[Rfam]
RNA: Alphaproteobacteria transfer-messenger RNA
RNA sequence: GCCCUUUCAUUCUGCACGCCGAUGCCCUAUAUCAUGGGGCCGUCUUCGGGCGGCUAUGGUGAUAAAUGAUGCCGUGAAAUAGACAUAGCGGACCCGGGGCAGUACCCGGCGGCUCCACCACCAGCCCCGGGAGCGAGGCUGAUGCUGGGGCCGAACCAGGAUCGACGUGUGUUCAAAGACGGUGUUUUGCCCGGCCUGACUGAGCCGUUAAACCGGUUUAACUCACAAAUGCCAACGAUAACGAGGCAUUCGCGAUUGCUGCCUAACGACCGGCCUCACGGCUAAUCGUUAAGUGACUUGAGCGCGGCAGGGACCACGCCGGGCAACAGAAGUGGAAACC
Dot-bracket structure: ......................................(((((......)))))...(((((......(((((((........(((.(((...(((((......)))))(((((((..............................)))))))............)))))).......))))))).)))))((((.[[[....))))..........]]]....................................................................................((((.....[...))))............]......